[Rfam]
RNA sequence: GCAUAUUGCUUAGCGCUGGCUCUUAAUAAAAGAGGACGAGGAAGAGGUUGUCGAAGUAUUCAGCGGAUGCCUCUCGGCUGUAAUCCGGUCGAAAAAAUUUGGCAAAACUGUAAGGUGACUUACAGUACAAUACAAAAAAUAAGGAU
Numbered sequence: 001g002c003a004u005a006u007u008g009c010u011u012a013g014c015g016c017u018g019g020c021u022c023u024u025a026a027u028a029a030a031a032g033a034g035g036a037c038g039a040g041g042a043a044g045a046g047g048u049u050g051u052c053g054a055a056g057u058a059u060u061c062a063g064c065g066g067a068u069g070c071c072u073c074u075c076g077g078c079u080g081u082a083a084u085c086c087g088g089u090c091g092a093a094a095a096a097a098u099u100u101g102g103c104a105a106a107a108c109u110g111u112a113a114g115g116u117g118a119c120u121u122a123c124a125g126u127a128c129a130a131u132a133c134a135a136a137a138a139a140u141a142a143g144g145a146u
Stems, first nucleotide, its partner, number of pairs: 020034005043074005051063001053061002075091006096140001098138003108125007

A member of the RNA family "glmS glucosamine-6-phosphate activated ribozyme aptamer" from Pectinatus cerevisiiphilus, 146 nucleotides long. The base pairs follow the family's consensus structure, which is taken from published work. The family's RNA type in Rfam is riboswitch. The organism belongs to Pectinatus, within Bacteria. This entry contains a glucosamine-6-phosphate activated ribozyme that is found in the mRNA for GlmS. GlmS is an enzyme that uses fructose-6-phosphate and glutamine to generate glucosamine-6-phosphate.